Rfam assigns this 243-nucleotide part of an RNA from Gossypium aridum to the family "Eukaryotic large subunit ribosomal RNA".
[Rfam]
Nucleotides: 243
Base pairs, nucleotide, nucleotide: 001225002224003223004222005221006220007219008218009217010216011214012213017073022070023069024068025067077206078205079204080203081202083200228243229242230241231240
Number, partner (000 for none) and nucleotide at each position: 001225c002224g003223g004222a005221u006220g007219g008218g009217g010216g011214c012213u013000g014000g015000c016000g017073a018000u019000g020000c021000a022070c023069c024068c025067u026000a027000g028000u029000c030000g031000g032000a033000u034000g035000u036000g037000g038000a039000c040000a041000g042000u043000a044000a045000g046000a047000g048000u049000c050000g051000a052000u053000u054000c055000g056000c057000c058000g059000a060000u061000c062000a063000g064000c065000u066000c067025g068024g069023g070022g071000c072000a073017u074000g075000a076000a077206c078205u079204g080203a081202c082000a083200u084000g085000g086000g087000u088000c089000a090000u091000g092000g093000c094000g095000g096000u097000u098000g099000c100000u101000u102000a103000a104000g105000c106000c107000c108000a109000a110000g111000c112000c113000u114000u115000u116000g117000a118000u119000a120000c121000g122000c123000c124000c125000a126000u127000a128000g129000g130000g131000a132000c133000g134000u135000c136000a137000u138000u139000u140000c141000c142000a143000c144000g145000a146000u147000u148000g149000u150000g151000g152000g153000a154000u155000c156000g157000a158000g159000a160000a161000c162000u163000u164000a165000c166000c167000g168000u169000c170000u171000c172000a173000g174000c175000a176000u177000g178000c179000u180000u181000c182000g183000g184000c185000a186000c187000u188000u189000g190000c191000a192000u193000g194000c195000u196000c197000c198000g199000a200083a201000c202081g203080u204079c205078g206077g207000c208000u209000u210000g211000u212000g213012g214011g215000c216010u217009c218008c219007c220006u221005a222004u223003u224002u225001g226000g227000c228243c229242c230241g231240u232000c233000u234000u235000g236000a237000a238000a239000c240231a241230c242229g243228g

The organism belongs to Gossypium, within Eukaryota.